Overview
The record is a 115-nucleotide RNA sequence from Hordeum vulgare, which matches "Small nucleolar RNA Z278" in Rfam. Rfam's curators write: snoZ278 is a C/D box small nucleolar RNA. Its methylation guide targets have not been reported. The organism belongs to Hordeum vulgare, within Eukaryota. Its family is annotated with RNA processing and nucleolus in the Gene Ontology.
Nucleotides: 115
Stems, first nucleotide, its partner, number of pairs: 001115003048061005
Number, partner (000 for none) and nucleotide at each position: 001115a002114c003113c004000a005000a006000u007000g008000a009000u010000g011000c012000u013000a014000a015000g016000c017000c018000c019000a020000a021000c022000g023000u024000u025000u026000a027000g028000a029000g030000g031000c032000g033000c034000a035000u036000a037000u038000g039000g040000c041000u042000c043000c044000a045000g046000g047000a048061u049060c050059c051058u052057g053000u054000u055000u056000a057052c058051a059050g060049g061048a062000u063000g064000a065000a066000c067000c068000u069000g070000c071000c072000u073000g074000g075000a076000g077000g078000c079000g080000c081000u082000g083000u084000a085000u086000c087000c088000a089000c090000a091000u092000g093000a094000c095000a096000u097000c098000c099000a100000u101000g102000g103000g104000c105000a106000a107000g108000u109000c110000u111000g112000a113003g114002g115001u